The record is a 107-nucleotide RNA sequence from Paracoccus seriniphilus, which matches "TPP riboswitch aptamer (THI element)" in Rfam. The organism belongs to Paracoccus, within Bacteria. The family's consensus secondary structure is taken from published work. Rfam describes the family as follows. Vitamin B(1) in its active form thiamin pyrophosphate (TPP) is an essential coenzyme that is synthesised by coupling of pyrimidine and thiazole moieties in bacteria. The previously detected thiamin-regulatory element, thi box was extended, resulting in a new, highly conserved RNA secondary structure, the THI element, which is widely distributed in eubacteria and also occurs in some archaea. It scores 58 bits against the family's covariance model.

[Rfam]
RNA sequence: CGCCAUAAACGGGGGUGCUCACAGCGGGGCUGAGAUGCGCAUUGCAGCGCGAACCCUUCACAGCUGAUCCGGGUAAUGCCGGCGGAGCGAGGAUCGCAUGUUCAUUG
Numbered sequence: 001c002g003c004c005a006u007a008a009a010c011g012g013g014g015g016u017g018c019u020c021a022c023a024g025c026g027g028g029g030c031u032g033a034g035a036u037g038c039g040c041a042u043u044g045c046a047g048c049g050c051g052a053a054c055c056c057u058u059c060a061c062a063g064c065u066g067a068u069c070c071g072g073g074u075a076a077u078g079c080c081g082g083c084g085g086a087g088c089g090a091g092g093a094u095c096g097c098a099u100g101u102u103c104a105u106u107g
Stems, first nucleotide, its partner, number of pairs: 007094001010091001011057004016051001017030004037050004063088003069082004